RNA sequence: GCCGGGGUGACCUGCGAUGGUUCGCAGUUGAGGCUUCAAACCUCAGGACGGCUCACCGCCGUAGCUGUUCGAUUCAGCCUCACCGGC
Numbered sequence: 001g002c003c004g005g006g007g008u009g010a011c012c013u014g015c016g017a018u019g020g021u022u023c024g025c026a027g028u029u030g031a032g033g034c035u036u037c038a039a040a041c042c043u044c045a046g047g048a049c050g051g052c053u054c055a056c057c058g059c060c061g062u063a064g065c066u067g068u069u070c071g072a073u074u075c076a077g078c079c080u081c082a083c084c085g086g087c
Stems, first nucleotide, its partner, number of pairs: 001087005007081001009079001012027006028046006048062005064078004
Selenocysteine transfer RNA: an 87-nucleotide sequence from Diacronema lutheri.
Pairs were carried over by alignment from the consensus structure, which is taken from published work.
A reference for the family is Mizutani and Goto (2000), "Eukaryotic selenocysteine tRNA has the 9/4 secondary structure", FEBS Lett.